[Rfam]
Shown here is a 110-nucleotide RNA sequence from Gillisella ampelina, a member of the family "Alphaproteobacterial ar15". Rfam classes the family as a small RNA. Rfam 15.1 lists 316 matches to the family in 177 species. The literature on the family includes a 2012 paper in RNA Biol by del Val et al., "A survey of sRNA families in alpha-proteobacteria". The base pairs follow the family's consensus structure. Rfam links the family to the GO term protein binding. The organism belongs to Gillisella ampelina, within Bacteria.
RNA sequence: AGCUGAUGCACGCGAUGGCUUCCUCCCAGGUCCAUCGUAUCAGCUGUUCCCCUCUGGAGGUUUUUGACCUUCACAAUUAAAGGGCCUCGGUAUUCCGAUGGCCCUAUUUU
Numbered sequence: 001a002g003c004u005g006a007u008g009c010a011c012g013c014g015a016u017g018g019c020u021u022c023c024u025c026c027c028a029g030g031u032c033c034a035u036c037g038u039a040u041c042a043g044c045u046g047u048u049c050c051c052c053u054c055u056g057g058a059g060g061u062u063u064u065u066g067a068c069c070u071u072c073a074c075a076a077u078u079a080a081a082g083g084g085c086c087u088c089g090g091u092a093u094u095c096c097g098a099u100g101g102c103c104c105u106a107u108u109u110u
Stems, first nucleotide, its partner, number of pairs: 001045005007039003015035004055073007081105006087098004